About this RNA: The record is a 145-nucleotide RNA sequence from Cephalotus follicularis, which matches "U4 spliceosomal RNA" in Rfam. A search with the family's covariance model found it, with a score of 91 bits. NCBI's taxonomy places the organism under Eukaryota, Viridiplantae, Spermatophyta, eudicotyledons, Cephalotus. The family has 177 seed sequences and 32,178 matches in Rfam 15.1. U4 small nuclear RNA (U4 snRNA) is a component of the major U2-dependent spliceosome.
RNA sequence: AUUCUUGCGCUUGGGACAAUGACGCAGCUAGUGAGGUACUAACCGAUGCGCGUCUAUUGUUGGUUGAAAACUAUUUCCAAACCCCCUCUUUGGCUUGGGCUUUGUCUAAGCCGUAGAGAAUUUCUAGAAGGGCUCCCUAAAGGGU
Numbered sequence: 001a002u003u004c005u006u007g008c009g010c011u012u013g014g015g016a017c018a019a020u021g022a023c024g025c026a027g028c029u030a031g032u033g034a035g036g037u038a039c040u041a042a043c044c045g046a047u048g049c050g051c052g053u054c055u056a057u058u059g060u061u062g063g064u065u066g067a068a069a070a071c072u073a074u075u076u077c078c079a080a081a082c083c084c085c086c087u088c089u090u091u092g093g094c095u096u097g098g099g100c101u102u103u104g105u106c107u108a109a110g111c112c113g114u115a116g117a118g119a120a121u122u123u124c125u126a127g128a129a130g131g132g133c134u135c136c137c138u139a140a141a142g143g144g145u
Stems, first nucleotide, its partner, number of pairs: 021054005027049002035044003086118004091113008